[Rfam]
RNA sequence: CGCGCUGGGGAGCAAUUUCCAGCGUGAUCGGGCAGAAGUCAGCAGAGGUCAUAGUAAUCGCGGUAUCUGGAGCGAUGCCGCGGUGAAGGAC
Numbered sequence: 001c002g003c004g005c006u007g008g009g010g011a012g013c014a015a016u017u018u019c020c021a022g023c024g025u026g027a028u029c030g031g032g033c034a035g036a037a038g039u040c041a042g043c044a045g046a047g048g049u050c051a052u053a054g055u056a057a058u059c060g061c062g063g064u065a066u067c068u069g070g071a072g073c074g075a076u077g078c079c080g081c082g083g084u085g086a087a088g089g090a091c
Stems, first nucleotide, its partner, number of pairs: 001026002004023008039046002048091003057084011
RNA: Group II catalytic intron D1-D4-1